[Rfam]
RNA sequence: AGAGGUCAUAAGUUAGAGGCUGUAGCAGAAGCGCUCAUGGCACAACCAUGUGAGAUUCCAAUGAAUCUGCAAAUUCUGCU
Numbered sequence: 001a002g003a004g005g006u007c008a009u010a011a012g013u014u015a016g017a018g019g020c021u022g023u024a025g026c027a028g029a030a031g032c033g034c035u036c037a038u039g040g041c042a043c044a045a046c047c048a049u050g051u052g053a054g055a056u057u058c059c060a061a062u063g064a065a066u067c068u069g070c071a072a073a074u075u076c077u078g079c080u
Base pairs, nucleotide, nucleotide: 013048018047019046021044024080025079026078027077028076029075030074031043033041053068054067055066056065057064058063
Shown here is an 80-nucleotide RNA sequence from Alligator mississippiensis, a member of the family "Mammalian CPEB3 ribozyme".